[Rfam]
RNA sequence: AUACUGGUGUAGCUCAGUGGUUACUUCAAUCGCUGCGUGGGAUCGAGCCCCGGGUGCUGUCCAGUGCUUUU
Numbered sequence: 001a002u003a004c005u006g007g008u009g010u011a012g013c014u015c016a017g018u019g020g021u022u023a024c025u026u027c028a029a030u031c032g033c034u035g036c037g038u039g040g041g042a043u044c045g046a047g048c049c050c051c052g053g054g055u056g057c058u059g060u061c062c063a064g065u066g067c068u069u070u071u
Stems, first nucleotide, its partner, number of pairs: 002066006012055004017051001019049002025047003029043003

Vault RNA: a 71-nucleotide RNA sequence from Neogobius melanostomus. The organism belongs to Neogobius, within Eukaryota. A search with the family's covariance model found it, with a score of 47 bits. About the family: This family of RNAs are found as part of the enigmatic vault ribonucleoprotein complex. The literature on the family includes a 2009 paper in Mol Biol Evol by Stadler et al., "Evolution of Vault RNAs".